Shown here is a 75-nucleotide RNA sequence from Crystallibacter crystallopoietes, a member of the family "Actino-pnp RNA".

[Rfam]
RNA sequence: CGCGGUCCUCGGUAGUGACAUCCGGGAGGCAGCUGCACACGCAGCGCCGCCCGGACGUCUCGAUCGAAGACCGGG
Numbered sequence: 001c002g003c004g005g006u007c008c009u010c011g012g013u014a015g016u017g018a019c020a021u022c023c024g025g026g027a028g029g030c031a032g033c034u035g036c037a038c039a040c041g042c043a044g045c046g047c048c049g050c051c052c053g054g055a056c057g058u059c060u061c062g063a064u065c066g067a068a069g070a071c072c073g074g075g
Stems, first nucleotide, its partner, number of pairs: 001075001003073005009067005017059003021055006028048002
The family's RNA type in Rfam is cis-regulatory element.
The family's consensus secondary structure is taken from published work.
It scores 56 bits against the family's covariance model.